[Rfam]
RNA sequence: ACAACAACAAUAAAAAGCUCCAACCAAAAACAAUAAGAACAAGACGUUACGACUCCCGCACAACAAAAACAAAAAUGUGGAGGCGCAGUUAACUGAUUGUUUUGGAGAGGAAGCGCCGCCGGGUAAAACCGCAGCCAGACCGAGAAUAAUAAAACUGCCCCGAGGCAGCAGCCGCUCUGACUGGAUCAUGGAUUGAUCAUGGCAACAUCAGCUUCCAAAGCAAUCCGUUGGCUACUGACUCCCUGCUUGGGAGUAGCUGACAAGGCCCCUGGCCUGCCUUACGGGUCAAACAAUUCCAACAACAAGCCCGUAAUAAUAAUAAAAACAAAGCACGCACCAACUUGGGGGGGAACUUCGGUUCCCCCAGUAGCUUUGCCCCUUCUCCCCCCGCUGCAUUC
Numbered sequence: 001a002c003a004a005c006a007a008c009a010a011u012a013a014a015a016a017g018c019u020c021c022a023a024c025c026a027a028a029a030a031c032a033a034u035a036a037g038a039a040c041a042a043g044a045c046g047u048u049a050c051g052a053c054u055c056c057c058g059c060a061c062a063a064c065a066a067a068a069a070c071a072a073a074a075a076u077g078u079g080g081a082g083g084c085g086c087a088g089u090u091a092a093c094u095g096a097u098u099g100u101u102u103u104g105g106a107g108a109g110g111a112a113g114c115g116c117c118g119c120c121g122g123g124u125a126a127a128a129c130c131g132c133a134g135c136c137a138g139a140c141c142g143a144g145a146a147u148a149a150u151a152a153a154a155c156u157g158c159c160c161c162g163a164g165g166c167a168g169c170a171g172c173c174g175c176u177c178u179g180a181c182u183g184g185a186u187c188a189u190g191g192a193u194u195g196a197u198c199a200u201g202g203c204a205a206c207a208u209c210a211g212c213u214u215c216c217a218a219a220g221c222a223a224u225c226c227g228u229u230g231g232c233u234a235c236u237g238a239c240u241c242c243c244u245g246c247u248u249g250g251g252a253g254u255a256g257c258u259g260a261c262a263a264g265g266c267c268c269c270u271g272g273c274c275u276g277c278c279u280u281a282c283g284g285g286u287c288a289a290a291c292a293a294u295u296c297c298a299a300c301a302a303c304a305a306g307c308c309c310g311u312a313a314u315a316a317u318a319a320u321a322a323a324a325a326c327a328a329a330g331c332a333c334g335c336a337c338c339a340a341c342u343u344g345g346g347g348g349g350g351a352a353c354u355u356c357g358g359u360u361c362c363c364c365c366a367g368u369a370g371c372u373u374u375g376c377c378c379c380u381u382c383u384c385c386c387c388c389c390g391c392u393g394c395a396u397u398c
Base pairs, nucleotide, nucleotide: 050085051084053082054081055080056079100220101219102218103217104216112213113212114211132183133182134181136179137178138177155168156167157166158165159164238254239253240252241251242250281380283378284309285308287306328373329372330371331370345368346365347364348363349362350361351360352359353358